[Rfam]
RNA sequence: AUCGACCGGUCGGGUGCUCGCGUACCCGGCCCGCAAGUGGAGGCUCCGAUCUCCCACCUGGCCGACCCGAGGGUCGGCGGGUCCGGUCCGGCGGUUCGUGCCACACGGCAUGUUCCCGCCCGUGCGCCCCGCGGCGAGCCGCGGCGGUGCUCCCGGUACGACAGGAGCCCCGCCAGCGACCGUUUCGGGGCAUUUUCA
Numbered sequence: 001a002u003c004g005a006c007c008g009g010u011c012g013g014g015u016g017c018u019c020g021c022g023u024a025c026c027c028g029g030c031c032c033g034c035a036a037g038u039g040g041a042g043g044c045u046c047c048g049a050u051c052u053c054c055c056a057c058c059u060g061g062c063c064g065a066c067c068c069g070a071g072g073g074u075c076g077g078c079g080g081g082u083c084c085g086g087u088c089c090g091g092c093g094g095u096u097c098g099u100g101c102c103a104c105a106c107g108g109c110a111u112g113u114u115c116c117c118g119c120c121c122g123u124g125c126g127c128c129c130c131g132c133g134g135c136g137a138g139c140c141g142c143g144g145c146g147g148u149g150c151u152c153c154c155g156g157u158a159c160g161a162c163a164g165g166a167g168c169c170c171c172g173c174c175a176g177c178g179a180c181c182g183u184u185u186c187g188g189g190g191c192a193u194u195u196u197c198a
Stems, first nucleotide, its partner, number of pairs: 004088006012027002030081003034060002037057004041052002061078007090120005096112001098111005126191006132182003140178003143174005149168005
RNA: Streptomyces RNA 1601
Organism: Wenjunlia tyrosinilytica